[Rfam]
RNA: mir-574 microRNA precursor family
RNA sequence: AGGCCUGAAGAGAAAAGCAGGGUCUGAUCCAUAGCCUCCGUGGCAGCUGUUGAUCAGCACUUGCCUCUCUCUUUGGUUCUG
Numbered sequence: 001a002g003g004c005c006u007g008a009a010g011a012g013a014a015a016a017g018c019a020g021g022g023u024c025u026g027a028u029c030c031a032u033a034g035c036c037u038c039c040g041u042g043g044c045a046g047c048u049g050u051u052g053a054u055c056a057g058c059a060c061u062u063g064c065c066u067c068u069c070u071c072u073u074u075g076g077u078u079c080u081g
Stems, first nucleotide, its partner, number of pairs: 008073006015066001017064004024057006032049004